[Rfam]
RNA sequence: GCCCGAUCCGCGGGACUCAGCCCUGGGGGCACUUCCUGUUGUCAGGCCUGGAAGUGCCGUCAAGGUUGAGCUUCGCUGACCGAGG
Numbered sequence: 001g002c003c004c005g006a007u008c009c010g011c012g013g014g015a016c017u018c019a020g021c022c023c024u025g026g027g028g029g030c031a032c033u034u035c036c037u038g039u040u041g042u043c044a045g046g047c048c049u050g051g052a053a054g055u056g057c058c059g060u061c062a063a064g065g066u067u068g069a070g071c072u073u074c075g076c077u078g079a080c081c082g083a084g085g
Stems, first nucleotide, its partner, number of pairs: 002084001004082002007079002011075003016070006024062003028058009
About this RNA:
The family of this 85-nucleotide sequence from Oryctolagus cuniculus is "mir-512 microRNA precursor family". Its family is annotated with miRNA-mediated post-transcriptional gene silencing and RISC complex in the Gene Ontology. The base pairs follow the family's consensus structure, which was predicted with RNAalifold.